[Rfam]
RNA: Small Cajal body specific RNA 21
Organism: Monodelphis domestica
RNA sequence: AGGACCCUAUUUCCUGGGGGGUGAGCUCAGUCUACCCCACCCCCCCUCAGUGGGUCCCAGAAUAGAAUGCCAGGAUGGGUCUCACUCCUACCCCAUGAACAGAGAGGAGUGUGAGACAGACACCUGCUCUGGCCAGUACUGGCAACACAUGU
Numbered sequence: 001a002g003g004a005c006c007c008u009a010u011u012u013c014c015u016g017g018g019g020g021g022u023g024a025g026c027u028c029a030g031u032c033u034a035c036c037c038c039a040c041c042c043c044c045c046c047u048c049a050g051u052g053g054g055u056c057c058c059a060g061a062a063u064a065g066a067a068u069g070c071c072a073g074g075a076u077g078g079g080u081c082u083c084a085c086u087c088c089u090a091c092c093c094c095a096u097g098a099a100c101a102g103a104g105a106g107g108a109g110u111g112u113g114a115g116a117c118a119g120a121c122a123c124c125u126g127c128u129c130u131g132g133c134c135a136g137u138a139c140u141g142g143c144a145a146c147a148c149a150u151g152u
Stems, first nucleotide, its partner, number of pairs: 002057006016045008025036001068145001069143002072140002092132002100126002102123001